[Rfam]
RNA sequence: GGUCCCGUAGUUCAAUGGUAAAACACCCGGUUUAUACCCGGCAUUGACAGCGGACAGCUGUGUAUUGCAGGUUCAAAUCCUGCCGGGACCA
Numbered sequence: 001g002g003u004c005c006c007g008u009a010g011u012u013c014a015a016u017g018g019u020a021a022a023a024c025a026c027c028c029g030g031u032u033u034a035u036a037c038c039c040g041g042c043a044u045u046g047a048c049a050g051c052g053g054a055c056a057g058c059u060g061u062g063u064a065u066u067g068c069a070g071g072u073u074c075a076a077a078u079c080c081u082g083c084c085g086g087g088a089c090c091a
Base pairs, nucleotide, nucleotide: 001090002089003088004087005086006085007084010024011023012022027041028040029039030038067083068082069081070080071079
Annotation: This 91-nucleotide sequence from Watanabevirus wv3521 belongs to the Rfam family "tRNA". Rfam classes the family as a transfer RNA. Lineage of the source: Viruses > Duplodnaviria > Uroviricota > Caudoviricetes > Watanabevirus wv3521. It scores 59 bits against the family's covariance model.